let-7 microRNA precursor family: an 87-nucleotide sequence from Danionella cerebrum.
This family represents the microRNAs (miRNA) let-7 and mir-98. let-7 was identified from a study of developmental timing in C. elegans, and was later shown to be part of a much larger class of non-coding RNAs termed miRNAs.
The base pairs follow the family's consensus structure, which was predicted with RNAalifold.
A search with the family's covariance model found it, with a score of 78 bits.
Its family is annotated with RISC complex and miRNA-mediated post-transcriptional gene silencing in the Gene Ontology.
On this family, see Rougvie, Nat Rev Genet 2001: "Control of developmental timing in animals".
Rfam 15.1 lists 8,694 matches to the family in 797 species.
RNA sequence: ACGGGGUGAGGUAGUAGGUUGUGUGGUUUCAGGGUAGAGAUUUUGCCCCAUCAGGAGAUAAACUGUACAACCUACUGCCUUCCCUGG
Numbered sequence: 001a002c003g004g005g006g007u008g009a010g011g012u013a014g015u016a017g018g019u020u021g022u023g024u025g026g027u028u029u030c031a032g033g034g035u036a037g038a039g040a041u042u043u044u045g046c047c048c049c050a051u052c053a054g055g056a057g058a059u060a061a062a063c064u065g066u067a068c069a070a071c072c073u074a075c076u077g078c079c080u081u082c083c084c085u086g087g
Stems, first nucleotide, its partner, number of pairs: 002086005008081020032048004051058002